[Rfam]
RNA: Mammalian CPEB3 ribozyme
Organism: Alligator mississippiensis
RNA sequence: GGCUGCAAGUUUGAGGCCAUAACAGAAGUGUUCACGGCAAGGCCUAUCUGAUCCCAAUGAAUCUGCAAAUUCUGUU
Numbered sequence: 001g002g003c004u005g006c007a008a009g010u011u012u013g014a015g016g017c018c019a020u021a022a023c024a025g026a027a028g029u030g031u032u033c034a035c036g037g038c039a040a041g042g043c044c045u046a047u048c049u050g051a052u053c054c055c056a057a058u059g060a061a062u063c064u065g066c067a068a069a070u071u072c073u074g075u076u
Stems, first nucleotide, its partner, number of pairs: 015044004021076007029039002048065001050063003054059001